[Rfam]
RNA sequence: GUUGCGGUGUUCUCUAAUUCGCUUGGUGCAGGUCGGGACUACUUCGCCGUCUGCUACUAACUUUAACUACUUUUUUUCUCUCGUGUUAAUUCGAUUUUUAAUGUCAGCACCUCAAAAAAAAAAAAAAUUCGAUUUUUGGUUAUUGGGUGGGGGGAAAAGGUGGCGAAUUGGAUCCCGCCUUGCAUCAACUGAAUCGGAGACCGCCGCGAAA
Numbered sequence: 001g002u003u004g005c006g007g008u009g010u011u012c013u014c015u016a017a018u019u020c021g022c023u024u025g026g027u028g029c030a031g032g033u034c035g036g037g038a039c040u041a042c043u044u045c046g047c048c049g050u051c052u053g054c055u056a057c058u059a060a061c062u063u064u065a066a067c068u069a070c071u072u073u074u075u076u077u078c079u080c081u082c083g084u085g086u087u088a089a090u091u092c093g094a095u096u097u098u099u100a101a102u103g104u105c106a107g108c109a110c111c112u113c114a115a116a117a118a119a120a121a122a123a124a125a126a127a128u129u130c131g132a133u134u135u136u137u138g139g140u141u142a143u144u145g146g147g148u149g150g151g152g153g154g155a156a157a158a159g160g161u162g163g164c165g166a167a168u169u170g171g172a173u174c175c176c177g178c179c180u181u182g183c184a185u186c187a188a189c190u191g192a193a194u195c196g197g198a199g200a201c202c203g204c205c206g207c208g209a210a211a
Base pairs, nucleotide, nucleotide: 013198014197017194018193019192020191023188024187025186026185027184028183029182030181031180032179034177035176036175037174038173039171040170